RNA sequence: CGGCAGGCCACCUCUCCCUAACGAGAGGCUUUCUAUCUGGAAGGAUAGCUCAG
Dot-bracket structure: ..........((((((......))))))....((((((....)))))).....
RNA: serC leader
Organism: Rhizobium giardinii